[Rfam]
RNA sequence: UCGACGGGCCGUGACUGGCGCGCUGGGAUGGGACCGACCAUCGGGGAGCGGCCCACUGGACGCAUCUGUCCAGCACCGAGUGCCGUGCGCCUGGGCCGUACCG
Numbered sequence: 001u002c003g004a005c006g007g008g009c010c011g012u013g014a015c016u017g018g019c020g021c022g023c024u025g026g027g028a029u030g031g032g033a034c035c036g037a038c039c040a041u042c043g044g045g046g047a048g049c050g051g052c053c054c055a056c057u058g059g060a061c062g063c064a065u066c067u068g069u070c071c072a073g074c075a076c077c078g079a080g081u082g083c084c085g086u087g088c089g090c091c092u093g094g095g096c097c098g099u100a101c102c103g
Stems, first nucleotide, its partner, number of pairs: 003057001006054007015045002017091005028041004082096003

The record is a 103-nucleotide RNA sequence from Streptomyces sp., which matches "ZMP/ZTP riboswitch aptamer (pfl RNA motif)" in Rfam. Pairs were carried over by alignment from the consensus structure, which is taken from published work. Rfam links the family to the GO terms regulation of purine nucleotide biosynthetic process and one-carbon metabolic process. The source organism's lineage runs through Bacteria, Bacillati, Actinomycetota, Streptomycetaceae and Streptomyces. A search with the family's covariance model found it, with a score of 46 bits.